A member of the RNA family "DUF805b RNA", 35 nucleotides long. Rfam classes the family as a cis-regulatory element.
RNA sequence: GAGGUGGAAUCCGAAAAGCCUUAAAAGAGUAGGAG
Number, nucleotide and partner (000 for none) at each position: 001g000002a021003g020004g019005u018006g000007g000008a000009a000010u034011c033012c032013g000014a000015a000016a000017a000018g005019c004020c003021u002022u000023a000024a000025a000026a000027g000028a000029g000030u000031a000032g012033g011034a010035g000